[Rfam]
RNA: Small nucleolar RNA SNORA71
Organism: Sylvietta virens
RNA sequence: CCCUGCAUUCGAAAGUGAUUACGGUCUCGCCCGUGGCCGGGUCAUUGAUAGUGCAGGGAGAGGAAUGCGAGAGUUUUCCCGUGUUUGGGGGGGUCUGUGUCUCCCCCAGACCCUGUUGCUGUCGGACA
Dot-bracket structure: (((((((((....(((((((..((((........)))).)))))))...))))))))).........(((.(((........((((((((((........))))).)))))......))).)))....
Numbered sequence: 001c002c003c004u005g006c007a008u009u010c011g012a013a014a015g016u017g018a019u020u021a022c023g024g025u026c027u028c029g030c031c032c033g034u035g036g037c038c039g040g041g042u043c044a045u046u047g048a049u050a051g052u053g054c055a056g057g058g059a060g061a062g063g064a065a066u067g068c069g070a071g072a073g074u075u076u077u078c079c080c081g082u083g084u085u086u087g088g089g090g091g092g093g094u095c096u097g098u099g100u101c102u103c104c105c106c107c108a109g110a111c112c113c114u115g116u117u118g119c120u121g122u123c124g125g126a127c128a
Stems, first nucleotide, its partner, number of pairs: 001058009014046007023038004068124003072120003083111005088105005